[Rfam]
RNA sequence: UAUCAAUAAUAUUUUCUAGAGCAUAGUAUUGCCUAAGGAUAAAUUCUAUGGAUAUUAUGCCUGAAUUUUAGAUUCACAGGGUGCUUAUUUGAAAAGAUAGCAUCUCCACGAUUUGGGAAGGAAAAUAAGUUGAUUUAAA
Numbered sequence: 001u002a003u004c005a006a007u008a009a010u011a012u013u014u015u016c017u018a019g020a021g022c023a024u025a026g027u028a029u030u031g032c033c034u035a036a037g038g039a040u041a042a043a044u045u046c047u048a049u050g051g052a053u054a055u056u057a058u059g060c061c062u063g064a065a066u067u068u069u070a071g072a073u074u075c076a077c078a079g080g081g082u083g084c085u086u087a088u089u090u091g092a093a094a095a096g097a098u099a100g101c102a103u104c105u106c107c108a109c110g111a112u113u114u115g116g117g118a119a120g121g122a123a124a125a126u127a128a129g130u131u132g133a134u135u136u137a138a139a
Stems, first nucleotide, its partner, number of pairs: 003133002006130001012124005021060008032051002037047003062076005079105006086099005106116002
RNA: Molybdenum/Tungsten riboswitch aptamer (Moco RNA motif)